[Rfam]
RNA sequence: AACCUCAUUCUCCAUGAGAAUGGGCACUGUUUGUCAGUGUCCAGAAUUGGUCAAUGUGGCUAAAUUAAGACAGGUUAUGCUUCCAUCAUAGUAAGUGCAUUACAGUGGUGACAAUGAGACCUGUAACAUUU
Numbered sequence: 001a002a003c004c005u006c007a008u009u010c011u012c013c014a015u016g017a018g019a020a021u022g023g024g025c026a027c028u029g030u031u032u033g034u035c036a037g038u039g040u041c042c043a044g045a046a047u048u049g050g051u052c053a054a055u056g057u058g059g060c061u062a063a064a065u066u067a068a069g070a071c072a073g074g075u076u077a078u079g080c081u082u083c084c085a086u087c088a089u090a091g092u093a094a095g096u097g098c099a100u101u102a103c104a105g106u107g108g109u110g111a112c113a114a115u116g117a118g119a120c121c122u123g124u125a126a127c128a129u130u131u
Stems, first nucleotide, its partner, number of pairs: 003059002006056003021043007070124005084110006

A member of the RNA family "Small nucleolar RNA SNORA1" from Nannospalax galili, 131 nucleotides long.
Rfam describes the family as follows. ACA1 is a member of the H/ACA class of snoRNA that guide the sites of modification of uridines to pseudouridines.
Lineage of the source: Eukaryota > Bilateria > Vertebrata > Eutheria > Nannospalax.
Rfam links the family to the GO terms RNA processing and nucleolus.